[Rfam]
Annotation: The family of this 298-nucleotide RNA sequence from Loxodonta africana is "Metazoan signal recognition particle RNA". The family is grouped with related families in Rfam's "SRP clan". Rfam 15.1 lists 383,523 matches to the family in 1,221 species. By type it is a non-coding RNA gene. The family's consensus secondary structure is taken from published work. Taxonomically the source falls in Loxodonta (Eukaryota, Vertebrata, Gnathostomata, Eutheria).
RNA sequence: GCUGGGCGCCGUGGCAUGCACCGUAGUCCCAGCUGCUCGGGAGACUGAGGCUGGAGGACCGCUUGAGCCCAAGAGUUCUGGGCUGUAGUGCACUAUGCUGGUUGGGUAUCUGCACUAAAUUCAGCAUAAUAUGGUGGCUUACCUGGAGCAGGGGACCACCAGGUUGCCUAAGGAGGGGUGAACUGGCCCAGGUUGGAAACAGAACAGGCCAAAACUCCCGUGCUAAUCGGUGGUGGGACCACUCCUAUGAACAGCCACUGCACUCCAGCCUGGGCAACAUAGCAAGACCCCGUCUCUU
Number, nucleotide and partner (000 for none) at each position: 001g045002c000003u043004g000005g022006g021007c000008g019009c018010c000011g000012u000013g000014g000015c000016a000017u000018g009019c008020a000021c006022c005023g000024u000025a000026g000027u042028c041029c040030c000031a000032g000033c000034u000035g000036c000037u000038c000039g000040g029041g028042a027043g003044a000045c001046u000047g296048a295049g294050g293051c292052u000053g290054g289055a000056g000057g000058a000059c000060c000061g283062c282063u281064u000065g000066a000067g275068c274069c273070c272071a271072a000073g269074a000075g000076u000077u000078c268079u267080g266081g265082g264083c000084u262085g261086u260087a259088g258089u257090g256091c000092a000093c254094u253095a000096u251097g000098c249099u000100g000101g000102u000103u247104g246105g245106g244107u000108a000109u241110c237111u236112g000113c235114a234115c233116u232117a231118a000119a000120u000121u226122c000123a224124g223125c222126a221127u220128a165129a164130u163131a000132u161133g160134g159135u158136g157137g156138c000139u154140u153141a000142c151143c000144u000145g000146g000147a000148g000149c000150a000151g142152g000153g140154g139155a000156c137157c136158a135159c134160c133161a132162g000163g130164u129165u128166g000167c173168c172169u000170a000171a000172g168173g167174a000175g218176g217177g216178g215179u214180g000181a000182a000183c000184u211185g210186g209187c208188c207189c000190a000191g000192g000193u202194u201195g200196g000197a000198a000199a000200c195201a194202g193203a000204a000205c000206a000207g188208g187209c186210c185211a184212a000213a000214a179215c178216u177217c176218c175219c000220g127221u126222g125223c124224u123225a000226a121227u000228c000229g000230g000231u117232g116233g115234u114235g113236g111237g110238a000239c000240c000241a109242c000243u000244c106245c105246u104247a103248u000249g098250a000251a096252c000253a094254g093255c000256c090257a089258c088259u087260g086261c085262a084263c000264u082265c081266c080267a079268g078269c073270c000271u071272g070273g069274g068275c067276a000277a000278c000279a000280u000281a063282g062283c061284a000285a000286g000287a000288c000289c054290c053291c000292g051293u050294c049295u048296c047297u000298u000